RNA sequence: GCCGGUCCUCGGUAGUGGCCCCCGGAACUGGCAAUUCCGGUGGCUUCGAUCGAAGACCGGC
Numbered sequence: 001g002c003c004g005g006u007c008c009u010c011g012g013u014a015g016u017g018g019c020c021c022c023c024g025g026a027a028c029u030g031g032c033a034a035u036u037c038c039g040g041u042g043g044c045u046u047c048g049a050u051c052g053a054a055g056a057c058c059g060g061c
Base pairs, nucleotide, nucleotide: 001061002060003059004058005057006056007055009053010052011051012050013049017045018044019043020042022040023039024038025037026036027035029033
RNA: Actino-pnp RNA